[Rfam]
RNA sequence: AACCGAAAAAGGCAAACUAUCCGAAAGGAUGGGACGCAAAGCCUCUGGCCUAAGUCCUUUAAGGAUAAGGUAGCAAGGCUACCGUA
Numbered sequence: 001a002a003c004c005g006a007a008a009a010a011g012g013c014a015a016a017c018u019a020u021c022c023g024a025a026a027g028g029a030u031g032g033g034a035c036g037c038a039a040a041g042c043c044u045c046u047g048g049c050c051u052a053a054g055u056c057c058u059u060u061a062a063g064g065a066u067a068a069g070g071u072a073g074c075a076a077g078g079c080u081a082c083c084g085u086a
Stems, first nucleotide, its partner, number of pairs: 012037002017032006040080004046075002048071003055065004

Rfam assigns this 86-nucleotide RNA from Nitrosococcus halophilus to the family "c-di-GMP-I riboswitch aptamer". Lineage of the source: Bacteria > Pseudomonadati > Chromatiales > Chromatiaceae > Nitrosococcus halophilus. Its family is annotated with cyclic-di-GMP binding in the Gene Ontology. About the family: GEMM was predicted in a large-scale screen for bacterial structured RNA regulatory elements.